[Rfam]
RNA sequence: GUGCAGAGCAUCUAGGGUUCCGAUCCGCGGCGCGGGUGCUGGUCCGAGAGAUGCGCUCCGGCGGUGAGCGCCCGGAGACACGGCGGGCCAAAAUCCCGGGAGGU
Numbered sequence: 001g002u003g004c005a006g007a008g009c010a011u012c013u014a015g016g017g018u019u020c021c022g023a024u025c026c027g028c029g030g031c032g033c034g035g036g037u038g039c040u041g042g043u044c045c046g047a048g049a050g051a052u053g054c055g056c057u058c059c060g061g062c063g064g065u066g067a068g069c070g071c072c073c074g075g076a077g078a079c080a081c082g083g084c085g086g087g088c089c090a091a092a093a094u095c096c097c098g099g100g101a102g103g104u
Base pairs, nucleotide, nucleotide: 008054009053010052011051012050015045016044020042021041022039023037024036025035026034027033028032056077057076058075059074060073061072062070063069079099081102085097086096087095
RNA: Guanidine-I riboswitch aptamer
Organism: Methylobrevis albus